Description:
Shown here is a 242-nucleotide RNA sequence from Zygotorulaspora mrakii, a member of the family "Small nucleolar RNA snR63". The organism belongs to Zygotorulaspora, within Eukaryota. By type it is a C/D-box small nucleolar RNA.

[Rfam]
RNA sequence: UUAAAUGAUGAUAAUAUUUCAAUUUUUAACGCUGAUCUAAUGAGAACAGAAGCAUUUGCUUUUUAAGACCAUCCCACAACACACCAAAUUUGAUGUGCUGUGUCAUUUCAGCUAUCGUUUGCAAGGUAAUCUUGUACCGUUUUGGUACAUUAUUUUGUUUAUGUGUAGCGCCUAGUAGAUGAAUUGGGCGUCUUUUAAUGUAAUGAGUGAUCAGUAAACCUAAUGUCAUAGUUACACUGAGU
Dot-bracket structure: ....(((((...((.((....)).))....(((((((.(.(....((((((((....)))))..(((((.....((((.((((.((....)).)))).))))...(.((..(.(.((.(..((((.....)))).).)).)...)........((((((..............))))))......))).)))))....)))....).)))))))).........))))).............
Numbered sequence: 001u002u003a004a005a006u007g008a009u010g011a012u013a014a015u016a017u018u019u020c021a022a023u024u025u026u027u028a029a030c031g032c033u034g035a036u037c038u039a040a041u042g043a044g045a046a047c048a049g050a051a052g053c054a055u056u057u058g059c060u061u062u063u064u065a066a067g068a069c070c071a072u073c074c075c076a077c078a079a080c081a082c083a084c085c086a087a088a089u090u091u092g093a094u095g096u097g098c099u100g101u102g103u104c105a106u107u108u109c110a111g112c113u114a115u116c117g118u119u120u121g122c123a124a125g126g127u128a129a130u131c132u133u134g135u136a137c138c139g140u141u142u143u144g145g146u147a148c149a150u151u152a153u154u155u156u157g158u159u160u161a162u163g164u165g166u167a168g169c170g171c172c173u174a175g176u177a178g179a180u181g182a183a184u185u186g187g188g189c190g191u192c193u194u195u196u197a198a199u200g201u202a203a204u205g206a207g208u209g210a211u212c213a214g215u216a217a218a219c220c221u222a223a224u225g226u227c228a229u230a231g232u233u234a235c236a237c238u239g240a241g242u
Stems, first nucleotide, its partner, number of pairs: 005229005013026002016023002031215007039208001041206001046201003049062005065194005075102004080097004085092002106188001108187002112145001114141001116139002119136001122134004154179006